[Rfam]
RNA: Y RNA
Organism: Callithrix jacchus
RNA sequence: GACUGGUCCGAAGGUAAUGAGUUAUCUCAAUUGAGUGUUCACAGUCAGUUACAGGUUGAGCUCCUUGUUCUACUCUUUCGCGCCUGCUCACUACUGCACUUGACUAGUCUUAA
Numbered sequence: 001g002a003c004u005g006g007u008c009c010g011a012a013g014g015u016a017a018u019g020a021g022u023u024a025u026c027u028c029a030a031u032u033g034a035g036u037g038u039u040c041a042c043a044g045u046c047a048g049u050u051a052c053a054g055g056u057u058g059a060g061c062u063c064c065u066u067g068u069u070c071u072a073c074u075c076u077u078u079c080g081c082g083c084c085u086g087c088u089c090a091c092u093a094c095u096g097c098a099c100u101u102g103a104c105u106a107g108u109c110u111u112a113a
Stems, first nucleotide, its partner, number of pairs: 001109008010101002014097002016092001018090004044074001047071002